[Rfam]
RNA sequence: AAGGUUCCGGUUCACGCCUUCAGCACGACGGCGACCCGGCGACC
Numbered sequence: 001a002a003g004g005u006u007c008c009g010g011u012u013c014a015c016g017c018c019u020u021c022a023g024c025a026c027g028a029c030g031g032c033g034a035c036c037c038g039g040c041g042a043c044c
Base pairs, nucleotide, nucleotide: 003044004043005042007039008038009037010036015033016032017031018030020028021027
A member of the RNA family "L31-Actinobacteria ribosomal protein leader" from Winogradskya consettensis, 44 nucleotides long. The family's consensus secondary structure is taken from published work. The organism belongs to Winogradskya, within Bacteria. For this family Rfam cites "Discovery of 20 novel ribosomal leader candidates in bacteria and archaea" (Eckert and Weinberg, BMC Microbiol, 2020).